[Rfam]
A member of the RNA family "mir-302 microRNA precursor family" from Bos taurus, 68 nucleotides long. The source organism's lineage runs through Eukaryota, Craniata, Vertebrata, Mammalia and Bos. It is one of the family's seed sequences. Its family is annotated with RISC complex and miRNA-mediated post-transcriptional gene silencing in the Gene Ontology. On this family, see Mineno et al., Nucleic Acids Res 2006: "The expression profile of microRNAs in mouse embryos". The family is grouped with related families in Rfam's "mir-290 clan".
RNA sequence: CCUCUGCUUUAACAUGGGGGUACCUGCUGUGUAAAGCAAAAGUAAGUGCUUCCAUGUUUCAGUGGAGG
Numbered sequence: 001c002c003u004c005u006g007c008u009u010u011a012a013c014a015u016g017g018g019g020g021u022a023c024c025u026g027c028u029g030u031g032u033a034a035a036g037c038a039a040a041a042g043u044a045a046g047u048g049c050u051u052c053c054a055u056g057u058u059u060c061a062g063u064g065g066a067g068g
Stems, first nucleotide, its partner, number of pairs: 001068003005064004011058013025044004